Description
A member of the RNA family "Small nucleolar RNA SNORA3/SNORA45 family" from Cyclopterus lumpus, 132 nucleotides long. The source organism's lineage runs through Eukaryota, Vertebrata, Osteoglossocephalai, Eupercaria and Cyclopterus. Rfam 15.1 lists 2,080 matches to the family in 639 species. The base pairs follow the family's consensus structure, which was predicted with RNAalifold. It is annotated as an H/ACA-box small nucleolar RNA.
RNA sequence: GUAGAGACUAGAGUCUCGCCUCGACAUCACUCAUUGUCUUGGCGUGCUAGAGUCCUCUUAGAGUGAAGACUGCUCCUAUUCACUGACUGGACCUUUUUGGUAGACCAGUCGGCCACAUGGUCAGUUACAAAC
Numbered sequence: 001g002u003a004g005a006g007a008c009u010a011g012a013g014u015c016u017c018g019c020c021u022c023g024a025c026a027u028c029a030c031u032c033a034u035u036g037u038c039u040u041g042g043c044g045u046g047c048u049a050g051a052g053u054c055c056u057c058u059u060a061g062a063g064u065g066a067a068g069a070c071u072g073c074u075c076c077u078a079u080u081c082a083c084u085g086a087c088u089g090g091a092c093c094u095u096u097u098u099g100g101u102a103g104a105c106c107a108g109u110c111g112g113c114c115a116c117a118u119g120g121u122c123a124g125u126u127a128c129a130a131a132c
Stems, first nucleotide, its partner, number of pairs: 003058004007053003012048002015046001017044004023038004070124003074120002083112004088107003093103002